[Rfam]
RNA sequence: AAACCCUUUUAAUUGCAGUCCCGAGAGGCUCGCAAAGGGGUAUUCUGGUUCACAUUUCUGUACGUGUACAGAAAGAUUGUGGAACCUUUCUACCUCUUUGUGCCCUAGGCUGCACAAAGAGUUUUUUUAU
Numbered sequence: 001a002a003a004c005c006c007u008u009u010u011a012a013u014u015g016c017a018g019u020c021c022c023g024a025g026a027g028g029c030u031c032g033c034a035a036a037g038g039g040g041u042a043u044u045c046u047g048g049u050u051c052a053c054a055u056u057u058c059u060g061u062a063c064g065u066g067u068a069c070a071g072a073a074a075g076a077u078u079g080u081g082g083a084a085c086c087u088u089u090c091u092a093c094c095u096c097u098u099u100g101u102g103c104c105c106u107a108g109g110c111u112g113c114a115c116a117a118a119g120a121g122u123u124u125u126u127u128u129a130u
Stems, first nucleotide, its partner, number of pairs: 004039006015033002017030004050079001052077001055074008092123001094121010
Rfam assigns this 130-nucleotide RNA from Bacillus sp. THAF10 to the family "PyrR binding site". The base pairs follow the family's consensus structure, which is taken from published work. This family represents the PyrR binding site and terminator structure. This RNA structure is found upstream of a variety of genes involved in pyrimidine biosynthesis and transport. The alignment also includes a portion of the antiterminator structure. It scores 58 bits against the family's covariance model.